Rfam assigns this 69-nucleotide RNA from Arminella tumorigenes to the family "S-element". Gene Ontology terms of the family: translation regulator activity and mRNA transcription. Rfam describes the family as follows. This family represents a group of S-elements from p42d and related plasmids. The S-element has multiple functions and is believed to act as a negative regulator of repC transcription, be required for efficient replication and act as a translational enhancer of repC. The literature on the family includes a 2004 paper in Mol Microbiol by Venkova-Canova et al., "Two discrete elements are required for the replication of a repABC plasmid: an antisense RNA and a stem-loop structure".
[Rfam]
RNA sequence: AGUCAAGAGUCUUUGGCACCAAAUUGGGUGAGCGGAUUUUUUUUGCCUUGAAAAAGGUGAAGGACGAUG
Numbered sequence: 001a002g003u004c005a006a007g008a009g010u011c012u013u014u015g016g017c018a019c020c021a022a023a024u025u026g027g028g029u030g031a032g033c034g035g036a037u038u039u040u041u042u043u044u045g046c047c048u049u050g051a052a053a054a055a056g057g058u059g060a061a062g063g064a065c066g067a068u069g
Base pairs, nucleotide, nucleotide: 009065010064011063012062013061014060017059018058019057020056024054025053030048032046033045034044035043036042